The record is a 168-nucleotide sequence from Brassica oleracea, which matches "small nucleolar RNA snoR143" in Rfam. It is annotated as an H/ACA-box small nucleolar RNA. It scores 144 bits against the family's covariance model. The base pairs follow the family's consensus structure, which was predicted with RNAalifold.
[Rfam]
RNA sequence: UUGCACUCUGUCUUGAUGGCUAUGUCAAACUGAGUGGCAUGGUCAUUGAACAACAGUGCAUAAACGAAUAGCUGUUAAAUUAGCAAGCGGCCAGACAACCGUUGGGAUAGAUCCACAGGUGAAGCGGAUUUUUCAUCUGCUUUCAGCUACUAAAUCUAUCCUACAAUC
Number, nucleotide and partner (000 for none) at each position: 001u000002u060003g059004c058005a057006c056007u000008c000009u052010g051011u050012c000013u049014u048015g047016a046017u045018g044019g043020c042021u041022a040023u039024g038025u037026c036027a035028a000029a000030c000031u000032g000033a000034g000035u027036g026037g025038c024039a023040u022041g021042g020043u019044c018045a017046u016047u015048g014049a013050a011051c010052a009053a000054c000055a000056g006057u005058g004059c003060a002061u000062a000063a000064a000065c000066g000067a000068a000069u000070a000071g000072c000073u000074g000075u000076u000077a000078a000079a000080u000081u000082a000083g000084c000085a000086a000087g000088c000089g000090g000091c000092c000093a000094g000095a000096c000097a000098a000099c000100c000101g000102u000103u000104g162105g161106g160107a159108u158109a157110g156111a155112u000113c000114c000115a000116c000117a000118g000119g000120u000121g143122a142123a141124g140125c139126g138127g137128a000129u000130u000131u000132u000133u000134c000135a000136u000137c127138u126139g125140c124141u123142u122143u121144c000145a000146g000147c000148u000149a000150c000151u000152a000153a000154a000155u111156c110157u109158a108159u107160c106161c105162u104163a000164c000165a000166a000167u000168c000